The family of this 156-nucleotide RNA from Solanum lycopersicum is "MIR6027 microRNA precursor family".
[Rfam]
RNA sequence: UCGUAAUUUUACAUGAUUAUGGGUAGCACAAGGAUUAAUGUGAAACAGAAAAGUGAUAUGCAAAGAAGAUGGAGAUUCAAUUGUUUAUUGUUACGAAAAAAACACUUUUGUGUUUCUCGUGAAUCCUUCGGCUAUCCAUAAUCAUGUUGAAUAUGU
Numbered sequence: 001u002c003g004u005a006a007u008u009u010u011a012c013a014u015g016a017u018u019a020u021g022g023g024u025a026g027c028a029c030a031a032g033g034a035u036u037a038a039u040g041u042g043a044a045a046c047a048g049a050a051a052a053g054u055g056a057u058a059u060g061c062a063a064a065g066a067a068g069a070u071g072g073a074g075a076u077u078c079a080a081u082u083g084u085u086u087a088u089u090g091u092u093a094c095g096a097a098a099a100a101a102a103c104a105c106u107u108u109u110g111u112g113u114u115u116c117u118c119g120u121g122a123a124u125c126c127u128u129c130g131g132c133u134a135u136c137c138a139u140a141a142u143c144a145u146g147u148u149g150a151a152u153a154u155g156u
Base pairs, nucleotide, nucleotide: 002155003154004153005152007151008150009149011147012146013145014144015143016142017141018140019139020138021137022136023135024134025133026132027131030128031127032126033125034124035123036122038120039119040118042116043115044114045113046112047111050108051107052106053105054104055103066092067091069089073086074085075084076083